[Rfam]
RNA sequence: GCGUGGGUCGGCCCGCUGACUGGAUCCAGUGGGCUGGGGGAAGCCGUCGCCUCAUUCCCCGCGGGCGGCGGACCGGUCCGGGAGGUGCGGCUCGCGCCUCCCGGACUGCG
Numbered sequence: 001g002c003g004u005g006g007g008u009c010g011g012c013c014c015g016c017u018g019a020c021u022g023g024a025u026c027c028a029g030u031g032g033g034c035u036g037g038g039g040g041a042a043g044c045c046g047u048c049g050c051c052u053c054a055u056u057c058c059c060c061g062c063g064g065g066c067g068g069c070g071g072a073c074c075g076g077u078c079c080g081g082g083a084g085g086u087g088c089g090g091c092u093c094g095c096g097c098c099u100c101c102c103g104g105a106c107u108g109c110g
Stems, first nucleotide, its partner, number of pairs: 001109002006074003009036010044071009075107013
RNA: Streptomyces RNA 4115